[Rfam]
RNA sequence: UCCCCCGCUUUUCCUCCCUGAGCGGGUGCCUUAAUGUGUGACAGCAAAAAGGCUUCUGAGCCCCGGCAUGGCCGGGGCUUUUUUUU
Numbered sequence: 001u002c003c004c005c006c007g008c009u010u011u012u013c014c015u016c017c018c019u020g021a022g023c024g025g026g027u028g029c030c031u032u033a034a035u036g037u038g039u040g041a042c043a044g045c046a047a048a049a050a051g052g053c054u055u056c057u058g059a060g061c062c063c064c065g066g067c068a069u070g071g072c073c074g075g076g077g078c079u080u081u082u083u084u085u086u
Base pairs, nucleotide, nucleotide: 004026005025006024007023008022009021028053029052030051031050032049060078061077062076063075064074065073066072067071
Annotation
Shown here is an 86-nucleotide RNA from Ramlibacter tataouinensis, a member of the family "Burkholderia RNA 7 (anti-hemB)". NCBI's taxonomy places the organism under Bacteria, Pseudomonadati, Burkholderiales, Comamonadaceae, Ramlibacter. The family's RNA type in Rfam is small RNA. This RNA motif was identified by computational search in b-proteobacteria Burkholderia. Co-purified with Hfq, expression confirmed by Northern blot. Its family is annotated with bacterial biofilm matrix and protein binding in the Gene Ontology.